[Rfam]
RNA: c-di-GMP-II-GAG riboswitch aptamer
Organism: Deinococcus yavapaiensis
RNA sequence: UGACAACCGGGAUACAACGGCCUCCACCCCAGCACGGUCAUUUAGGGUAGAGCGAGCGAAUAGUGAGACCGUCCCGGAGGAGG
Numbered sequence: 001u002g003a004c005a006a007c008c009g010g011g012a013u014a015c016a017a018c019g020g021c022c023u024c025c026a027c028c029c030c031a032g033c034a035c036g037g038u039c040a041u042u043u044a045g046g047g048u049a050g051a052g053c054g055a056g057c058g059a060a061u062a063g064u065g066a067g068a069c070c071g072u073c074c075c076g077g078a079g080g081a082g083g
Stems, first nucleotide, its partner, number of pairs: 001083001004080001007077005013058001015056001022052003026048004036070002038066005